[Rfam]
Shown here is a 96-nucleotide RNA sequence from Mandrillus leucophaeus, a member of the family "Y RNA". Lineage of the source: Eukaryota > Bilateria > Cercopithecoidea > Cercopithecidae > Mandrillus. It is annotated as a non-coding RNA gene.
RNA sequence: GGCUGGUCCGAUGUUAGUGGGUUAUCAGAACUUAUUAACAUUAGUGUCACUGAAGCUGGCAUAUAAUCCCCCACUGCUAAAUCUGACUGGCUUUAC
Numbered sequence: 001g002g003c004u005g006g007u008c009c010g011a012u013g014u015u016a017g018u019g020g021g022u023u024a025u026c027a028g029a030a031c032u033u034a035u036u037a038a039c040a041u042u043a044g045u046g047u048c049a050c051u052g053a054a055g056c057u058g059g060c061a062u063a064u065a066a067u068c069c070c071c072c073a074c075u076g077c078u079a080a081a082u083c084u085g086a087c088u089g090g091c092u093u094u095a096c
Base pairs, nucleotide, nucleotide: 001092002091003090004089005088006087007086008085010084014080015079016075017074018073019072020071021070033061035059037057